RNA sequence: CACCGACAUCAGCGAUUCGUUUUGCGAACCGGCACCGACCGCCAGGUAGGCGUUCAUGCCGAGUUCUUUCAUCUGCUGUUCGCCAAUCACCCGGGUCGAGAUGUUUUUGUUGAAACUGUCCGCCAGCUGACGCGCCUGGGAGGCCAGGUAGGCAGCAUUACAAAUAUUUGGUGGCAUAUUGCCCAGAUCUUUUGC
Numbered sequence: 001c002a003c004c005g006a007c008a009u010c011a012g013c014g015a016u017u018c019g020u021u022u023u024g025c026g027a028a029c030c031g032g033c034a035c036c037g038a039c040c041g042c043c044a045g046g047u048a049g050g051c052g053u054u055c056a057u058g059c060c061g062a063g064u065u066c067u068u069u070c071a072u073c074u075g076c077u078g079u080u081c082g083c084c085a086a087u088c089a090c091c092c093g094g095g096u097c098g099a100g101a102u103g104u105u106u107u108u109g110u111u112g113a114a115a116c117u118g119u120c121c122g123c124c125a126g127c128u129g130a131c132g133c134g135c136c137u138g139g140g141a142g143g144c145c146a147g148g149u150a151g152g153c154a155g156c157a158u159u160a161c162a163a164a165u166a167u168u169u170g171g172u173g174g175c176a177u178a179u180u181g182c183c184c185a186g187a188u189c190u191u192u193u194g195c
Stems, first nucleotide, its partner, number of pairs: 005189002013031002016028005035041001050059002062077003078135002081132002084129002087126001092122005100111004137162002140159002143156002167186002170183003